[Rfam]
RNA sequence: AUAAAAGCGCUGAAGAGAAGAGUAAUUAAGUAUUCGAUAUUUCCAGAGAGCCCCCGACCGCUGAAAGGGAGUAAUAUUCGGCUUAAUGAAUAAAGUCUCGGAGCAUCUUACUAAUCUGAUGAAAUCAGGGAUCGUAAGACGGGUUCUUCCGAUAUCAAGAUAGGGUAUGAACGUACCUGAAGAGGUUGGUUUGGCGACAAAUCAACAAACUGAGGUGGUACCGCGAAGUCAAACUCUCGUCCUUAAG
Numbered sequence: 001a002u003a004a005a006a007g008c009g010c011u012g013a014a015g016a017g018a019a020g021a022g023u024a025a026u027u028a029a030g031u032a033u034u035c036g037a038u039a040u041u042u043c044c045a046g047a048g049a050g051c052c053c054c055c056g057a058c059c060g061c062u063g064a065a066a067g068g069g070a071g072u073a074a075u076a077u078u079c080g081g082c083u084u085a086a087u088g089a090a091u092a093a094a095g096u097c098u099c100g101g102a103g104c105a106u107c108u109u110a111c112u113a114a115u116c117u118g119a120u121g122a123a124a125u126c127a128g129g130g131a132u133c134g135u136a137a138g139a140c141g142g143g144u145u146c147u148u149c150c151g152a153u154a155u156c157a158a159g160a161u162a163g164g165g166u167a168u169g170a171a172c173g174u175a176c177c178u179g180a181a182g183a184g185g186u187u188g189g190u191u192u193g194g195c196g197a198c199a200a201a202u203c204a205a206c207a208a209a210c211u212g213a214g215g216u217g218g219u220a221c222c223g224c225g226a227a228g229u230c231a232a233a234c235u236c237u238c239g240u241c242c243u244u245a246a247g
Stems, first nucleotide, its partner, number of pairs: 007104002015099004025087006039075003050072002053069003107138005113132001140151003185206007212244004223240004
Rfam assigns this 247-nucleotide RNA sequence from Mesobacillus boroniphilus to the family "T-box leader".
Gene Ontology term of the family: tRNA binding.
Rfam describes the family as follows. Uncharged tRNA acts as the effector for transcription antitermination of genes in the T-box leader family. T-boxes are found upstream of many aminoacyl-tRNA synthetase genes and some amino acid biosynthetic genes usually in Gram-positive bacteria. The anticodon of a specific tRNA base pairs to a specifier sequence within the T-box motif, and the NCCA acceptor tail of the tRNA base pairs to a conserved bulge in the T-box antiterminator hairpin.
A reference for the family is Grundy et al. (1994), "Interaction between the acceptor end of tRNA and the T box stimulates antitermination in the Bacillus subtilis tyrS gene: a new role for the discriminator base", J Bacteriol.
The family's RNA type in Rfam is cis-regulatory leader.
Lineage of the source: Bacteria > Bacillota > Bacilli > Caryophanales > Mesobacillus boroniphilus.
A search with the family's covariance model found it, with a score of 115 bits.
The base pairs follow the family's consensus structure, which is taken from published work.